[Rfam]
A member of the RNA family "terC RNA" from Rhodoblastus acidophilus, 61 nucleotides long. The source organism's lineage runs through Bacteria, Pseudomonadota, Hyphomicrobiales, Rhodoblastaceae and Rhodoblastus. Rfam classes the family as a cis-regulatory element. The base pairs follow the family's consensus structure, which is taken from published work.

RNA sequence: GUUCCUGUCCGGGCCCCUCUGGCGGAAGACGUCGGCUCUUCCGCGAUGUCGGACUGCUCAU
Numbered sequence: 001g002u003u004c005c006u007g008u009c010c011g012g013g014c015c016c017c018u019c020u021g022g023c024g025g026a027a028g029a030c031g032u033c034g035g036c037u038c039u040u041c042c043g044c045g046a047u048g049u050c051g052g053a054c055u056g057c058u059c060a061u
Stems, first nucleotide, its partner, number of pairs: 007054006022044008